[Rfam]
RNA sequence: GUUGCGGACCGGGCCCCUCUGACGGCAUGUUGAUGUCGUGAUGUCGGACCGCAUCG
Dot-bracket structure: .....((.((((.........(((((((....)))))))....)))).))......

terC RNA: a 56-nucleotide RNA sequence from Paragemmobacter aquarius. It is annotated as a cis-regulatory element. Taxonomically the source falls in Paragemmobacter (Bacteria, Alphaproteobacteria, Rhodobacterales, Paracoccaceae).